This 373-nucleotide RNA sequence from Candidatus Protochlamydia amoebophila belongs to the Rfam family "Bacterial RNase P class A". A search with the family's covariance model found it, with a score of 221 bits. By type it is a ribozyme. NCBI's taxonomy places the organism under Bacteria, Chlamydiota, Parachlamydiales, Candidatus Protochlamydia, Candidatus Protochlamydia amoebophila. The base pairs follow the family's consensus structure, which is taken from published work.
[Rfam]
RNA sequence: CUGGGAAGAGAAGUCAUCGCUGCUUUUCUGUUGAAAGAAGAGGAGAGGAAAGUCUGGACUUCGCAGGAGAAGAUACCAAUGAAAGAUUGGGGGCCGUAAGGCUACGGAAAGUGUAACAGAAAAUAUUCCGCUAUUAAACACUUUGUGUUUUGAUAGACAGGGUGAAAUGCUAGCUUUGGGAGCUAUGCCUGAUUUGAGGAGACUCAAACAGUGACAAACCCUAUCUGAAGCAAGACCGACAAGAGCAUAUUCUGUCUCCACAGAGCUCUCAAGAGUUGCUUGAGGAUGUCGGCGACGCCAUCCCUAGAUGAAUGAUGACUAGGCUAACUUUUUUGUUAGUCGACAGAAUCCGGCUUAAUAUCUUCCCAGACUU
Numbered sequence: 001c002u003g004g005g006a007a008g009a010g011a012a013g014u015c016a017u018c019g020c021u022g023c024u025u026u027u028c029u030g031u032u033g034a035a036a037g038a039a040g041a042g043g044a045g046a047g048g049a050a051a052g053u054c055u056g057g058a059c060u061u062c063g064c065a066g067g068a069g070a071a072g073a074u075a076c077c078a079a080u081g082a083a084a085g086a087u088u089g090g091g092g093g094c095c096g097u098a099a100g101g102c103u104a105c106g107g108a109a110a111g112u113g114u115a116a117c118a119g120a121a122a123a124u125a126u127u128c129c130g131c132u133a134u135u136a137a138a139c140a141c142u143u144u145g146u147g148u149u150u151u152g153a154u155a156g157a158c159a160g161g162g163u164g165a166a167a168u169g170c171u172a173g174c175u176u177u178g179g180g181a182g183c184u185a186u187g188c189c190u191g192a193u194u195u196g197a198g199g200a201g202a203c204u205c206a207a208a209c210a211g212u213g214a215c216a217a218a219c220c221c222u223a224u225c226u227g228a229a230g231c232a233a234g235a236c237c238g239a240c241a242a243g244a245g246c247a248u249a250u251u252c253u254g255u256c257u258c259c260a261c262a263g264a265g266c267u268c269u270c271a272a273g274a275g276u277u278g279c280u281u282g283a284g285g286a287u288g289u290c291g292g293c294g295a296c297g298c299c300a301u302c303c304c305u306a307g308a309u310g311a312a313u314g315a316u317g318a319c320u321a322g323g324c325u326a327a328c329u330u331u332u333u334u335g336u337u338a339g340u341c342g343a344c345a346g347a348a349u350c351c352g353g354c355u356u357a358a359u360a361u362c363u364u365c366c367c368a369g370a371c372u373u
Stems, first nucleotide, its partner, number of pairs: 001369009012320007020045002023042006050356003054353005059230004066258002069256001071226005076090005091105001092103004106221002111219002113215002128161002131156008169188002171185004193208006234277003243268004252263001284303005290297002